RNA: small nucleolar RNA snoR134
RNA sequence: UUGCACGAUGCCUUCCGGGCUUCUCUGAAUAGUUAUCGAUGACGAAGUAAGCCCCAAUGCUUGUGCUUCAACGCAGGCCUUCUGUGUUGCAGUUUAGCCUGUGUACCUCACUUUCCUAUGAUUAUAUCUGUGUCAAUUCGACGGCUACAUAC
Numbered sequence: 001u002u003g004c005a006c007g008a009u010g011c012c013u014u015c016c017g018g019g020c021u022u023c024u025c026u027g028a029a030u031a032g033u034u035a036u037c038g039a040u041g042a043c044g045a046a047g048u049a050a051g052c053c054c055c056a057a058u059g060c061u062u063g064u065g066c067u068u069c070a071a072c073g074c075a076g077g078c079c080u081u082c083u084g085u086g087u088u089g090c091a092g093u094u095u096a097g098c099c100u101g102u103g104u105a106c107c108u109c110a111c112u113u114u115c116c117u118a119u120g121a122u123u124a125u126a127u128c129u130g131u132g133u134c135a136a137u138u139c140g141a142c143g144g145c146u147a148c149a150u151a152c
Base pairs, nucleotide, nucleotide: 003066004065005064006063007062008061010060011059017054018053019052020051021050023047024045025044077145078144079143081141082140085135086134088132089131090130091129092128096122098120
Dot-bracket structure: ..((((((.((.....(((((.(((..................)).)..)))))....))))))))..........(((.((..((.(((((...(.(.....................).).....))))).))....)).))).......